[Rfam]
RNA sequence: ACGUGUGAAGGAGUGGUUUUAUUAAAAAAGUGGAAACAAGGAAACACUUUAUUUAGUAAAACCUUAAA
Dot-bracket structure: ..............(((((..((....(((((............))).))....))..))))).....